[Rfam]
RNA sequence: AGAGGUCAUAAAUUUGAGGCCAUAGUAGAAGCACUCAAAGUGUGGCCUGUCAGAUUCCAACAAAUCUGCAAAUUCUGCU
Numbered sequence: 001a002g003a004g005g006u007c008a009u010a011a012a013u014u015u016g017a018g019g020c021c022a023u024a025g026u027a028g029a030a031g032c033a034c035u036c037a038a039a040g041u042g043u044g045g046c047c048u049g050u051c052a053g054a055u056u057c058c059a060a061c062a063a064a065u066c067u068g069c070a071a072a073u074u075c076u077g078c079u
Base pairs, nucleotide, nucleotide: 018047019046020045021044024079025078026077027076028075029074030073031043032042033041051068052067053066054065055064056063